[Rfam]
RNA sequence: GUGAUACGAAAAUGCAUUCUAUUCACUGUGCCAUCUGUUUUUCUAUAGGUGAUCAGAGGGGAAAAGAAGCGCUAGAUAGACACCCACGCUCAUGAGCGUACCUCAUACUGUUUUAAGUGUUAUAAUUUUUAUUGUUAAUACCCACGCUUAGAUCAGUAUCUGCGCAAGUGAGACAUCU
Numbered sequence: 001g002u003g004a005u006a007c008g009a010a011a012a013u014g015c016a017u018u019c020u021a022u023u024c025a026c027u028g029u030g031c032c033a034u035c036u037g038u039u040u041u042u043c044u045a046u047a048g049g050u051g052a053u054c055a056g057a058g059g060g061g062a063a064a065a066g067a068a069g070c071g072c073u074a075g076a077u078a079g080a081c082a083c084c085c086a087c088g089c090u091c092a093u094g095a096g097c098g099u100a101c102c103u104c105a106u107a108c109u110g111u112u113u114u115a116a117g118u119g120u121u122a123u124a125a126u127u128u129u130u131a132u133u134g135u136u137a138a139u140a141c142c143c144a145c146g147c148u149u150a151g152a153u154c155a156g157u158a159u160c161u162g163c164g165c166a167a168g169u170g171a172g173a174c175a176u177c178u
Stems, first nucleotide, its partner, number of pairs: 014072002017068002026058002029055002032051005089172005096165003108156003112152007127134001
Dot-bracket structure: .............((.((.......((.((.(((((..........)))))..)).))........))..))................(((((..(((.........(((.(((((((........(......)...........))))))).)))......)))..)))))......

The record is a 178-nucleotide sequence from Vanderwaltozyma polyspora, which matches "Small nucleolar RNA snR8" in Rfam.
A reference for the family is Parker et al. (1988), "Genetic analysis of small nuclear RNAs in Saccharomyces cerevisiae: viable sextuple mutant", Mol Cell Biol.
NCBI's taxonomy places the organism under Eukaryota, Fungi, Saccharomycotina, Vanderwaltozyma, Vanderwaltozyma polyspora.